Shown here is a 93-nucleotide sequence from Megasphaera sp. An286, a member of the family "Selenocysteine transfer RNA". Its family is annotated with triplet codon-amino acid adaptor activity in the Gene Ontology. Taxonomically the source falls in Megasphaera (Bacteria, Bacillati, Negativicutes, Veillonellaceae). The base pairs follow the family's consensus structure, which is taken from published work. Its Rfam clan is "tRNA clan".

RNA sequence: GGGAAGGGAUGGGUUCUGGUGUUCCCUCUAGUCUUCAAAACUAGCAUGAGAAGUUAACAACUCCUUAGGUGGGUUCGAUUCCCACACCUUCUC
Numbered sequence: 001g002g003g004a005a006g007g008g009a010u011g012g013g014u015u016c017u018g019g020u021g022u023u024c025c026c027u028c029u030a031g032u033c034u035u036c037a038a039a040a041c042u043a044g045c046a047u048g049a050g051a052a053g054u055u056a057a058c059a060a061c062u063c064c065u066u067a068g069g070u071g072g073g074u075u076c077g078a079u080u081c082c083c084a085c086a087c088c089u090u091c092u093c
Stems, first nucleotide, its partner, number of pairs: 001093007008085001011026003016021001028044005047067004070084004